[Rfam]
The record is a 67-nucleotide RNA sequence from Culex quinquefasciatus, which matches "mir-29 microRNA precursor family" in Rfam.
For this family Rfam cites "microRNAs: tiny regulators with great potential" (Ambros, Cell, 2001).

RNA sequence: AAGUACUGGCUUCCAAAGGUGAGUAGAUGGCAUUCGAUAUCGCUCUAGCACCAUUCGAAAUCAGUAC
Numbered sequence: 001a002a003g004u005a006c007u008g009g010c011u012u013c014c015a016a017a018g019g020u021g022a023g024u025a026g027a028u029g030g031c032a033u034u035c036g037a038u039a040u041c042g043c044u045c046u047a048g049c050a051c052c053a054u055u056c057g058a059a060a061u062c063a064g065u066a067c
Stems, first nucleotide, its partner, number of pairs: 003067001006064004011059003016054001018052004024047004
The sequence is in the family's curated seed alignment. This family represents the microRNA (miRNA) precursors mir-29. Rfam links the family to the GO terms RISC complex and gene silencing by miRNA. NCBI's taxonomy places the organism under Eukaryota, Arthropoda, Dicondylia, Culicoidea, Culex pipiens complex.